[Rfam]
RNA sequence: GACUAAGCGUAUACGGUGGAUGCCUUGGCAAUUGGAGGCGAUGAAGGACGUGUUAAUCUGCGAUAAGCGUGGUUAAGGUGAUAAAAACCGUUAUAGACCACGAUUUCCGAAUGGGGAAACCCACCCUUUUAGGGUAUCGCUAAGUGAAUACAUAGCUUAGCGAGGCGAACCCGGAGAACUGAAACAUCUAAGUACCCGGAGGAAAAGAAAUCAACCGAGAUUUCCUAAGUAGCGGCGAGCGAACGGGAAACAGCCGAAUCAGCAUGGUUUAGUGGAAUGCUCUGGAAAGUGCAACGAUAGUGGGUGAUAGUCCCGUACACGACAAGCCAUGUUGGACAUAUUAAGUAGGUCGGGGCACGUGAAACCUUGACUGAAGAUAGGGGGACCAUCCUCUAAGGCUAAAUACUCCCAAUUGACCGAUAGUGAACCAGUACCGUGAGGGAAAGGCGAAAAGAACCCCUGUGAGGGGAGUGAAAUAGAACCUGAAACCGUAUACGUACAAG
Numbered sequence: 001g002a003c004u005a006a007g008c009g010u011a012u013a014c015g016g017u018g019g020a021u022g023c024c025u026u027g028g029c030a031a032u033u034g035g036a037g038g039c040g041a042u043g044a045a046g047g048a049c050g051u052g053u054u055a056a057u058c059u060g061c062g063a064u065a066a067g068c069g070u071g072g073u074u075a076a077g078g079u080g081a082u083a084a085a086a087a088c089c090g091u092u093a094u095a096g097a098c099c100a101c102g103a104u105u106u107c108c109g110a111a112u113g114g115g116g117a118a119a120c121c122c123a124c125c126c127u128u129u130u131a132g133g134g135u136a137u138c139g140c141u142a143a144g145u146g147a148a149u150a151c152a153u154a155g156c157u158u159a160g161c162g163a164g165g166c167g168a169a170c171c172c173g174g175a176g177a178a179c180u181g182a183a184a185c186a187u188c189u190a191a192g193u194a195c196c197c198g199g200a201g202g203a204a205a206a207g208a209a210a211u212c213a214a215c216c217g218a219g220a221u222u223u224c225c226u227a228a229g230u231a232g233c234g235g236c237g238a239g240c241g242a243a244c245g246g247g248a249a250a251c252a253g254c255c256g257a258a259u260c261a262g263c264a265u266g267g268u269u270u271a272g273u274g275g276a277a278u279g280c281u282c283u284g285g286a287a288a289g290u291g292c293a294a295c296g297a298u299a300g301u302g303g304g305u306g307a308u309a310g311u312c313c314c315g316u317a318c319a320c321g322a323c324a325a326g327c328c329a330u331g332u333u334g335g336a337c338a339u340a341u342u343a344a345g346u347a348g349g350u351c352g353g354g355g356c357a358c359g360u361g362a363a364a365c366c367u368u369g370a371c372u373g374a375a376g377a378u379a380g381g382g383g384g385a386c387c388a389u390c391c392u393c394u395a396a397g398g399c400u401a402a403a404u405a406c407u408c409c410c411a412a413u414u415g416a417c418c419g420a421u422a423g424u425g426a427a428c429c430a431g432u433a434c435c436g437u438g439a440g441g442g443a444a445a446g447g448c449g450a451a452a453a454g455a456a457c458c459c460c461u462g463u464g465a466g467g468g469g470a471g472u473g474a475a476a477u478a479g480a481a482c483c484u485g486a487a488a489c490c491g492u493a494u495a496c497g498u499a500c501a502a503g
Stems, first nucleotide, its partner, number of pairs: 007498010022483001023447002027418002029415007036407002038166002046108003049062003068102007077089003113122003123135004137163009170201001171199004181188002211218002221403001222249005232240002252400004259335012272320003278293003282289001302314003348372008379394005434441002457469004
Bacterial large subunit ribosomal RNA: a 503-nucleotide part of an RNA from Psychrosphaera ytuae.
Rfam links the family to the GO terms ribosome and structural constituent of ribosome.
The family's consensus secondary structure is taken from published work.
The organism belongs to Psychrosphaera, within Bacteria.